[Rfam]
RNA sequence: UGUUAAUCAGAUGUUUCUUAUUAAAAAUGCCCGGACAUAUGGACUCCAUAGUCAUUUCAGUGUGUUACUGAGGUAAGCU
Numbered sequence: 001u002g003u004u005a006a007u008c009a010g011a012u013g014u015u016u017c018u019u020a021u022u023a024a025a026a027a028u029g030c031c032c033g034g035a036c037a038u039a040u041g042g043a044c045u046c047c048a049u050a051g052u053c054a055u056u057u058c059a060g061u062g063u064g065u066u067a068c069u070g071a072g073g074u075a076a077g078c079u
Stems, first nucleotide, its partner, number of pairs: 002078003006074003

Small nucleolar RNA SNORD72: a 79-nucleotide RNA from Buceros rhinoceros. The family's RNA type in Rfam is C/D-box small nucleolar RNA. Rfam describes the family as follows. snoRNA HBII-240 belongs to the CD family of snoRNAs. It is the human orthologue of the mouse MBII-240 and is predicted to guide 2'O-ribose methylation of the large 28S rRNA at residue U4590. The family has 16 seed sequences and 726 matches in Rfam 15.1. The literature on the family includes a 2001 paper in EMBO J by Huttenhofer et al., "RNomics: an experimental approach that identifies 201 candidates for novel, small, non-messenger RNAs in mouse". The pairing is the family consensus, mapped onto this sequence. Rfam links the family to the GO terms RNA processing and nucleolus.